Source information:
sRNA-Xcc1: an 87-nucleotide RNA from Arsenophonus nasoniae. For this family Rfam cites "Genome-wide transcriptome analysis of the plant pathogen Xanthomonas identifies sRNAs with putative virulence functions" (Schmidtke et al., Nucleic Acids Res, 2011). The family's RNA type in Rfam is small RNA. The organism belongs to Arsenophonus, within Bacteria.
RNA sequence: GGUCGGGUAGCGAACAGUAUAUACAAUACCUUUUGGGAAAAGCUGUUGGCCGUCCUAUACGGUGUUGAAGUACCCGACCACCCUAGU
Numbered sequence: 001g002g003u004c005g006g007g008u009a010g011c012g013a014a015c016a017g018u019a020u021a022u023a024c025a026a027u028a029c030c031u032u033u034u035g036g037g038a039a040a041a042g043c044u045g046u047u048g049g050c051c052g053u054c055c056u057a058u059a060c061g062g063u064g065u066u067g068a069a070g071u072a073c074c075c076g077a078c079c080a081c082c083c084u085a086g087u
Base pairs, nucleotide, nucleotide: 001079002078003077004076005075006074007073008072009071013047014046015045016044018042020041029037030036031035049063050062051061052060053059